[Rfam]
RNA sequence: AGAAUAGCUUUCUAGGGUUCCGCAGUGACUGUUCGCUGGUCUGGUCCGAGAGAAGGCGCACAAUGGAUACAUUGUGUACACGGAGGGAUAAAAGCCUGGGAGGA
Numbered sequence: 001a002g003a004a005u006a007g008c009u010u011u012c013u014a015g016g017g018u019u020c021c022g023c024a025g026u027g028a029c030u031g032u033u034c035g036c037u038g039g040u041c042u043g044g045u046c047c048g049a050g051a052g053a054a055g056g057c058g059c060a061c062a063a064u065g066g067a068u069a070c071a072u073u074g075u076g077u078a079c080a081c082g083g084a085g086g087g088a089u090a091a092a093a094g095c096c097u098g099g100g101a102g103g104a
Stems, first nucleotide, its partner, number of pairs: 007057006015047002020044002022041001023038006058077008079099001081102001085097003
Rfam assigns this 104-nucleotide RNA from Fictibacillus arsenicus to the family "Guanidine-I riboswitch aptamer". The organism belongs to Fictibacillus, within Bacteria. On this family, see Barrick et al., Proc Natl Acad Sci U S A 2004: "New RNA motifs suggest an expanded scope for riboswitches in bacterial genetic control". Pairs were carried over by alignment from the consensus structure.